[Rfam]
RNA sequence: CGUAUGGUGCUUAGCAGCAAAAGUAGCUGACUAAGUGGCGAUGCGGCCUUAACUGAGGU
Numbered sequence: 001c002g003u004a005u006g007g008u009g010c011u012u013a014g015c016a017g018c019a020a021a022a023g024u025a026g027c028u029g030a031c032u033a034a035g036u037g038g039c040g041a042u043g044c045g046g047c048c049u050u051a052a053c054u055g056a057g058g059u
Base pairs, nucleotide, nucleotide: 001045002044003043004042005041007039008038011034012033013032014031015029016028017027018026
Description
L31-Gammaproteobacteria ribosomal protein leader: a 59-nucleotide RNA from Endozoicomonas sp. G2_1. The match comes from Rfam's covariance-model search (47 bits). Rfam classes the family as a cis-regulatory leader. The source organism's lineage runs through Bacteria, Pseudomonadota, Gammaproteobacteria, Endozoicomonadaceae and Endozoicomonas. The family is grouped with related families in Rfam's "Ribosomal Protein L31 Leader clan". A reference for the family is Eckert and Weinberg (2020), "Discovery of 20 novel ribosomal leader candidates in bacteria and archaea", BMC Microbiol.